Rfam assigns this 91-nucleotide RNA from Mesocricetibacter intestinalis to the family "Selenocysteine transfer RNA".
The family's consensus secondary structure is taken from published work.
The match comes from Rfam's covariance-model search (77 bits).
The family is grouped with related families in Rfam's "tRNA clan".
The literature on the family includes a 2000 paper in FEBS Lett by Mizutani and Goto, "Eukaryotic selenocysteine tRNA has the 9/4 secondary structure".
Lineage of the source: Bacteria > Pseudomonadota > Gammaproteobacteria > Pasteurellales > Mesocricetibacter.

RNA sequence: GGAAAGUCGUCGUUUCCGGUGAAGCGGCAGGACUUCAAAUCCUGUUAAGGUUGCCAGCAAUCUUGGGUGAGUUCGACUCUCAUGACUUUCC
Numbered sequence: 001g002g003a004a005a006g007u008c009g010u011c012g013u014u015u016c017c018g019g020u021g022a023a024g025c026g027g028c029a030g031g032a033c034u035u036c037a038a039a040u041c042c043u044g045u046u047a048a049g050g051u052u053g054c055c056a057g058c059a060a061u062c063u064u065g066g067g068u069g070a071g072u073u074c075g076a077c078u079c080u081c082a083u084g085a086c087u088u089u090c091c
Base pairs, nucleotide, nucleotide: 001091002090003089004088005087006086007085008084009083011026012025013024014023015022016021027045028044029043030042031041032040047064048063049062050061051060068082069081070080071079